[Rfam]
RNA sequence: GUCGGGUUCGGGAUGAACUGGUUGAUCUGCCCGCCGAUUACCGCCCAGGUGCGCUUGUCGUCGCGCAUCAUCUGCACACCGCGCCGCUUGAAUUCCUU
Numbered sequence: 001g002u003c004g005g006g007u008u009c010g011g012g013a014u015g016a017a018c019u020g021g022u023u024g025a026u027c028u029g030c031c032c033g034c035c036g037a038u039u040a041c042c043g044c045c046c047a048g049g050u051g052c053g054c055u056u057g058u059c060g061u062c063g064c065g066c067a068u069c070a071u072c073u074g075c076a077c078a079c080c081g082c083g084c085c086g087c088u089u090g091a092a093u094u095c096c097u098u
Stems, first nucleotide, its partner, number of pairs: 006039001008037004014033002018029001020027002043054002046051001079090001081088001